[Rfam]
RNA sequence: UCUCUCUUAGCCUUGCUGGGUCACAACGGGUCAAAUGUGUGCUUGGUAUCUUUUGAAGAGAGAGAGUGAGGAAAGUCCUCCCAAUGCGUGGCAGACCUGUCCCACAGUGGCCUUUCUGAUGCUAGAAAUAUAACAGGU
Numbered sequence: 001u002c003u004c005u006c007u008u009a010g011c012c013u014u015g016c017u018g019g020g021u022c023a024c025a026a027c028g029g030g031u032c033a034a035a036u037g038u039g040u041g042c043u044u045g046g047u048a049u050c051u052u053u054u055g056a057a058g059a060g061a062g063a064g065a066g067u068g069a070g071g072a073a074a075g076u077c078c079u080c081c082c083a084a085u086g087c088g089u090g091g092c093a094g095a096c097c098u099g100u101c102c103c104a105c106a107g108u109g110g111c112c113u114u115u116c117u118g119a120u121g122c123u124a125g126a127a128a129u130a131u132a133a134c135a136g137g138u
Stems, first nucleotide, its partner, number of pairs: 002066007011058001013056003019044002022041004027037001079127001081125001084123001093117003099111003
RNA: Small nucleolar RNA SNORA64/SNORA10 family